Annotation: c-di-AMP riboswitch aptamer (ydaO/yuaA leader): a 168-nucleotide sequence from Streptomyces sp. Mg1.
RNA sequence: UCGCGUAAAGCGCCGAAGGCAGGAGCGGGGGAACCAAGGUAGGCGCCGGGAACGACCGUUGAGAGACGGUCACGUACCGGCUAGGGGUUAAGUCACACACCACGUGUGGCCGGGCACUCACUCGCCCGAACCCGACAGCUCACCUCGUAGGCGUCGGUGAGGAGAACU
Numbered sequence: 001u002c003g004c005g006u007a008a009a010g011c012g013c014c015g016a017a018g019g020c021a022g023g024a025g026c027g028g029g030g031g032a033a034c035c036a037a038g039g040u041a042g043g044c045g046c047c048g049g050g051a052a053c054g055a056c057c058g059u060u061g062a063g064a065g066a067c068g069g070u071c072a073c074g075u076a077c078c079g080g081c082u083a084g085g086g087g088u089u090a091a092g093u094c095a096c097a098c099a100c101c102a103c104g105u106g107u108g109g110c111c112g113g114g115c116a117c118u119c120a121c122u123c124g125c126c127c128g129a130a131c132c133c134g135a136c137a138g139c140u141c142a143c144c145u146c147g148u149a150g151g152c153g154u155c156g157g158u159g160a161g162g163a164g165a166a167c168u
Stems, first nucleotide, its partner, number of pairs: 011153004025148006035084001085133003093109004112127004
Annotation: NCBI's taxonomy places the organism under Bacteria, Bacillati, Actinomycetota, Kitasatosporales, Streptomyces.